About this RNA: Rfam assigns this 99-nucleotide RNA sequence from a Mycobacteriales bacterium to the family "mraW RNA". The family's consensus secondary structure is taken from published work. It scores 58 bits against the family's covariance model. The family's RNA type in Rfam is cis-regulatory element.
[Rfam]
RNA sequence: UAAAUGUCGUGUUGCCAAGUCUCCAGCCGCCCCAACCUGCCAUACCUUCCCCGGUGUCAGGCGGAGCGGGUGGGGACUUGGCAACACGAAAGGCCACAA
Numbered sequence: 001u002a003a004a005u006g007u008c009g010u011g012u013u014g015c016c017a018a019g020u021c022u023c024c025a026g027c028c029g030c031c032c033c034a035a036c037c038u039g040c041c042a043u044a045c046c047u048u049c050c051c052c053g054g055u056g057u058c059a060g061g062c063g064g065a066g067c068g069g070g071u072g073g074g075g076a077c078u079u080g081g082c083a084a085c086a087c088g089a090a091a092g093g094c095c096a097c098a099a
Stems, first nucleotide, its partner, number of pairs: 010086007018078002021075005027069004032064002036061004041056003
Dot-bracket structure: .........(((((((.((.(((((.((((.((..((((.(((..........))).)))).)).)))).))))).)).))))))).............